[Rfam]
RNA sequence: AGCACGCAUGACUGUAAAUUUCUUUGGAUGAAAGUGUCUGCUAAAUGGCAUAUU
Dot-bracket structure: ............((((...(.((((.....)))).)..))).)...........